[Rfam]
RNA sequence: AUCGCUUCUCGGCCUUAUGGCUAAGAUCAAAGUGUAGUAUCUGUUCUUAUCAGCUUAAUAUCUGAUACGCUCCGCAUGCGGAGCCAGUAUAUUAAACUGAUUUUUGGAACAUGAUGAAGGCUAGGAGCUUGCUCCACCUUCGUCACGGGUUGGCCCGGCAUUGCAGUACAGUCGGGAUCGGCCCACCUAAU
Numbered sequence: 001a002u003c004g005c006u007u008c009u010c011g012g013c014c015u016u017a018u019g020g021c022u023a024a025g026a027u028c029a030a031a032g033u034g035u036a037g038u039a040u041c042u043g044u045u046c047u048u049a050u051c052a053g054c055u056u057a058a059u060a061u062c063u064g065a066u067a068c069g070c071u072c073c074g075c076a077u078g079c080g081g082a083g084c085c086a087g088u089a090u091a092u093u094a095a096a097c098u099g100a101u102u103u104u105u106g107g108a109a110c111a112u113g114a115u116g117a118a119g120g121c122u123a124g125g126a127g128c129u130u131g132c133u134c135c136a137c138c139u140u141c142g143u144c145a146c147g148g149g150u151u152g153g154c155c156c157g158g159c160a161u162u163g164c165a166g167u168a169c170a171g172u173c174g175g176g177a178u179c180g181g182c183c184c185a186c187c188u189a190a191u
Stems, first nucleotide, its partner, number of pairs: 007026003011022004048067006069084006113144008124135004147184006154176006
Dot-bracket structure: ......(((.((((....)))).))).....................((((((........)))))).((((((....))))))............................((((((((...((((....)))).))))))))..((((((.((((((...........))))))..)))))).......
Background
This 191-nucleotide sequence from Tribolium castaneum belongs to the Rfam family "U2 spliceosomal RNA". Rfam 15.1 lists 71,512 matches to the family in 2,642 species. Taxonomically the source falls in Tribolium (Eukaryota, Opisthokonta, Mandibulata, Endopterygota). The family's RNA type in Rfam is spliceosomal small nuclear RNA.